[Rfam]
RNA sequence: UGAUACCAGGGUCAAAUAGACAUGCGUUUCAUGCUUGCAUGAAAAAGCAUGUCUACUUGACCCGAAAAAACAUGAGAAAGAGCCAUUUUUCAGAGAAAAAUGAGCGAUUUCGAAUGUUUUUAGGAUUUCGAGAGCGCAAAGCGCGGAGAAAUCCGUGGUAUCA
Numbered sequence: 001u002g003a004u005a006c007c008a009g010g011g012u013c014a015a016a017u018a019g020a021c022a023u024g025c026g027u028u029u030c031a032u033g034c035u036u037g038c039a040u041g042a043a044a045a046a047g048c049a050u051g052u053c054u055a056c057u058u059g060a061c062c063c064g065a066a067a068a069a070a071c072a073u074g075a076g077a078a079a080g081a082g083c084c085a086u087u088u089u090u091c092a093g094a095g096a097a098a099a100a101u102g103a104g105c106g107a108u109u110u111c112g113a114a115u116g117u118u119u120u121u122a123g124g125a126u127u128u129c130g131a132g133a134g135c136g137c138a139a140a141g142c143g144c145g146g147a148g149a150a151a152u153c154c155g156u157g158g159u160a161u162c163a
Base pairs, nucleotide, nucleotide: 001163002162003161004160005159006158007157010062011061012060013059017055018054019053020052021051022050023049024048025047027045028044029042030041031040032039033038066121067120068119069118070117071116072115073114076111077110078109079108084102085101086100087099088098089097123154124153125152126151127150128149129148134144135143136142137141
Dot-bracket structure: (((((((..((((...(((((((((.(((((((....))))).)).)))))))))...))))...((((((((..((((....((((((.......)))))).....))))..)))))))).(((((((....((((...))))...)))))))..)))))))